[Rfam]
RNA sequence: UUUGCCUGUGAUGACUACAUAGACCUGUAAUGAUUGCGGAGAUGAACGCAACAUAAUACAUCUAAGGGGCUGAGGCAAA
Number, nucleotide and partner (000 for none) at each position: 001u000002u078003u077004g076005c075006c074007u000008g000009u000010g000011a000012u000013g000014a000015c000016u000017a000018c000019a000020u000021a000022g000023a000024c000025c000026u000027g000028u000029a000030a000031u000032g000033a000034u000035u000036g000037c000038g000039g000040a000041g000042a000043u000044g000045a000046a000047c000048g000049c000050a000051a000052c000053a000054u000055a000056a000057u000058a000059c000060a000061u000062c000063u000064a000065a000066g000067g000068g000069g000070c000071u000072g000073a000074g006075g005076c004077a003078a002079a000